RNA sequence: CGCAAGUAUUUUACGAUUAAGAAGCAACUGUCUCUUGGAUAGAUUGUUUAUGAAUCU
Numbered sequence: 001c002g003c004a005a006g007u008a009u010u011u012u013a014c015g016a017u018u019a020a021g022a023a024g025c026a027a028c029u030g031u032c033u034c035u036u037g038g039a040u041a042g043a044u045u046g047u048u049u050a051u052g053a054a055u056c057u
Base pairs, nucleotide, nucleotide: 018037019036020035021034022033024031025030
RNA: Plastid-rps18 3UTR RNA